RNA: Bacterial small subunit ribosomal RNA, nucleotides 562 to 915
RNA sequence: GGCGUAAAGCGUGCGUAGGCGGCUGAUUAAGUCGGAUGUGAAAUCCCUGAGCUUAACUUAGGAAUUGCAUUCGAUACUGGUCAGCUAGAGUAUGGGAGAGGAUGGUAGAAUUCCAGGUGUAGCGGUGAAAUGCGUAGAGAUCUGGAGGAAUACCGAUGGCGAAGGCAGCCAUCUGGCCUAAUACUGACGCUGAGGUACGAAAGCAUGGGGAGCAAACAGGAUUAGAUACCCUGGUAGUCCAUGCCGUAAACGAUGUCUACUAGCCGUUGGGGCCUUUGAGGCUUUAGUGGCGCAGCUAACGCGAUAAGUAGACCGCCUGGGGAGUACGGUCGCAAGACUAAAACUCAAAUGAAU
Numbered sequence: 001g002g003c004g005u006a007a008a009g010c011g012u013g014c015g016u017a018g019g020c021g022g023c024u025g026a027u028u029a030a031g032u033c034g035g036a037u038g039u040g041a042a043a044u045c046c047c048u049g050a051g052c053u054u055a056a057c058u059u060a061g062g063a064a065u066u067g068c069a070u071u072c073g074a075u076a077c078u079g080g081u082c083a084g085c086u087a088g089a090g091u092a093u094g095g096g097a098g099a100g101g102a103u104g105g106u107a108g109a110a111u112u113c114c115a116g117g118u119g120u121a122g123c124g125g126u127g128a129a130a131u132g133c134g135u136a137g138a139g140a141u142c143u144g145g146a147g148g149a150a151u152a153c154c155g156a157u158g159g160c161g162a163a164g165g166c167a168g169c170c171a172u173c174u175g176g177c178c179u180a181a182u183a184c185u186g187a188c189g190c191u192g193a194g195g196u197a198c199g200a201a202a203g204c205a206u207g208g209g210g211a212g213c214a215a216a217c218a219g220g221a222u223u224a225g226a227u228a229c230c231c232u233g234g235u236a237g238u239c240c241a242u243g244c245c246g247u248a249a250a251c252g253a254u255g256u257c258u259a260c261u262a263g264c265c266g267u268u269g270g271g272g273c274c275u276u277u278g279a280g281g282c283u284u285u286a287g288u289g290g291c292g293c294a295g296c297u298a299a300c301g302c303g304a305u306a307a308g309u310a311g312a313c314c315g316c317c318u319g320g321g322g323a324g325u326a327c328g329g330u331c332g333c334a335a336g337a338c339u340a341a342a343a344c345u346c347a348a349a350u351g352a353a354u
Stems, first nucleotide, its partner, number of pairs: 001317003009314001011198004016192001018191003022085007030078002032074009046062006089185003093180004100174007107151001111147008122133003159166002203244006212238002217233004255313006263291012295302002319346003328339004